[Rfam]
RNA: Small nucleolar RNA SNORA8
Organism: Hucho hucho
RNA sequence: AGCACUGAAUGGUAUCUGCAGCCAGCCGCUACUCCGGCUUGACUGUUCAUUACUAAGUGCAAGAGUAACUCGACAUAUGGCAUUGUUGGUCUCCAUGCCUCUUUGUGCCUGGACUCCUGGUAUAUCUGUCGAGACAGAU
Numbered sequence: 001a002g003c004a005c006u007g008a009a010u011g012g013u014a015u016c017u018g019c020a021g022c023c024a025g026c027c028g029c030u031a032c033u034c035c036g037g038c039u040u041g042a043c044u045g046u047u048c049a050u051u052a053c054u055a056a057g058u059g060c061a062a063g064a065g066u067a068a069c070u071c072g073a074c075a076u077a078u079g080g081c082a083u084u085g086u087u088g089g090u091c092u093c094c095a096u097g098c099c100u101c102u103u104u105g106u107g108c109c110u111g112g113a114c115u116c117c118u119g120g121u122a123u124a125u126c127u128g129u130c131g132a133g134a135c136a137g138a139u
Base pairs, nucleotide, nucleotide: 002060003059004058005057006056014054018046019045020044021043023041024039025038026037027036028035064127065126068123070120071119072118079109080108081107082106083105
Dot-bracket structure: .(((((.......(...((((.((((((......))))).).)))).......).)))))...((..(.(((......(((((.....................)))))........)))..)..))............